[Rfam]
RNA sequence: GGAGUUCGUUGCGGCAGGGUUGGGGUUUCUAUGCGGCAUGUGCCUUGCUUUGAGAAAUGCAAUGCCCUUCGAAAUCCCAAAAAUGUCCAACGCUUAUC
Numbered sequence: 001g002g003a004g005u006u007c008g009u010u011g012c013g014g015c016a017g018g019g020u021u022g023g024g025g026u027u028u029c030u031a032u033g034c035g036g037c038a039u040g041u042g043c044c045u046u047g048c049u050u051u052g053a054g055a056a057a058u059g060c061a062a063u064g065c066c067c068u069u070c071g072a073a074a075u076c077c078c079a080a081a082a083a084u085g086u087c088c089a090a091c092g093c094u095u096a097u098c
Stems, first nucleotide, its partner, number of pairs: 008094001010092002014086003021079009031069001033067001035066005041061003
Source information
A member of the RNA family "mir-2788 microRNA precursor family" from Apis mellifera, 98 nucleotides long. The family's consensus secondary structure was predicted with RNAalifold. Rfam 15.1 lists 89 matches to the family in 88 species. Rfam's curators put it in the seed alignment. Rfam links the family to the GO terms miRNA-mediated post-transcriptional gene silencing and RISC complex. Taxonomically the source falls in Apis (Eukaryota, Eumetazoa, Protostomia, Apini).